[Rfam]
RNA sequence: GGGAUGUGCUCAAAACAUGGGCCUAAAGAAUGAGCCCUCUAUUUACAACAUACCACAUCAGAAUCUGAGGUAAGUGUUGACAGGAGCAAGACACAUUGAUCUUCCUGUCACAUCAUGACACAUAUUU
Numbered sequence: 001g002g003g004a005u006g007u008g009c010u011c012a013a014a015a016c017a018u019g020g021g022c023c024u025a026a027a028g029a030a031u032g033a034g035c036c037c038u039c040u041a042u043u044u045a046c047a048a049c050a051u052a053c054c055a056c057a058u059c060a061g062a063a064u065c066u067g068a069g070g071u072a073a074g075u076g077u078u079g080a081c082a083g084g085a086g087c088a089a090g091a092c093a094c095a096u097u098g099a100u101c102u103u104c105c106u107g108u109c110a111c112a113u114c115a116u117g118a119c120a121c122a123u124a125u126u127u
Stems, first nucleotide, its partner, number of pairs: 003054001005052004013044003017040001019038003022034001023032001069119001071117001075112003080108002083102003087098003090094001